Source information: Rfam assigns this 78-nucleotide RNA to the family "RAGATH-12 RNA". The sequence is in the family's curated seed alignment.

[Rfam]
RNA sequence: UAGUAGCACUUAUAGGAACUGUCUGGAGUGCACACGAAAGUGUGAAUACGCGCAUUAAUUGAAUCCUUGCGCAAGGUA
Numbered sequence: 001u002a003g004u005a006g007c008a009c010u011u012a013u014a015g016g017a018a019c020u021g022u023c024u025g026g027a028g029u030g031c032a033c034a035c036g037a038a039a040g041u042g043u044g045a046a047u048a049c050g051c052g053c054a055u056u057a058a059u060u061g062a063a064u065c066c067u068u069g070c071g072c073a074a075g076g077u078a
Stems, first nucleotide, its partner, number of pairs: 031044005050072004